Annotation: This 141-nucleotide RNA from Dorea sp. CAG:317 belongs to the Rfam family "Ribosomal protein L10 leader". The organism belongs to Dorea, within Bacteria.
RNA sequence: GUAAUCUAAUUAAAGUUGCCGAAGACAGCAGGUGCGUGAGCGUAAGUUGAGAAACGCCUGCCGAGGAAAGUUAGAUUCUGUUAUGAGUGAAUUUACAGUGCCUUUGUGUCUUUGGAUACAGAGGCGUUUUUUUUGGCAGCA
Numbered sequence: 001g002u003a004a005u006c007u008a009a010u011u012a013a014a015g016u017u018g019c020c021g022a023a024g025a026c027a028g029c030a031g032g033u034g035c036g037u038g039a040g041c042g043u044a045a046g047u048u049g050a051g052a053a054a055c056g057c058c059u060g061c062c063g064a065g066g067a068a069a070g071u072u073a074g075a076u077u078c079u080g081u082u083a084u085g086a087g088u089g090a091a092u093u094u095a096c097a098g099u100g101c102c103u104u105u106g107u108g109u110c111u112u113u114g115g116a117u118a119c120a121g122a123g124g125c126g127u128u129u130u131u132u133u134u135g136g137c138a139g140c141a
Base pairs, nucleotide, nucleotide: 028061029060030059031058032057033056034041035040099126100125101124102123103122104121105120106119107118108117109116110115